RNA sequence: GGAGAGUUGGCAGAGUGGUCGAAUGCGGCAGUCUUGAAAACUGUUUUACUUAACGGUAACGGGGGUUCGAAUCCCUCACUCUCCG
Numbered sequence: 001g002g003a004g005a006g007u008u009g010g011c012a013g014a015g016u017g018g019u020c021g022a023a024u025g026c027g028g029c030a031g032u033c034u035u036g037a038a039a040a041c042u043g044u045u046u047u048a049c050u051u052a053a054c055g056g057u058a059a060c061g062g063g064g065g066u067u068c069g070a071a072u073c074c075c076u077c078a079c080u081c082u083c084c085g
Stems, first nucleotide, its partner, number of pairs: 001084007010026003028044005061077005

This 85-nucleotide RNA sequence from Parvicella tangerina belongs to the Rfam family "tRNA". Pairs were carried over by alignment from the consensus structure, which is taken from published work. Rfam 15.1 lists 5,335,975 matches to the family in 14,413 species. Lineage of the source: Bacteria > Flavobacteriia > Flavobacteriales > Parvicellaceae > Parvicella. The match comes from Rfam's covariance-model search (60 bits).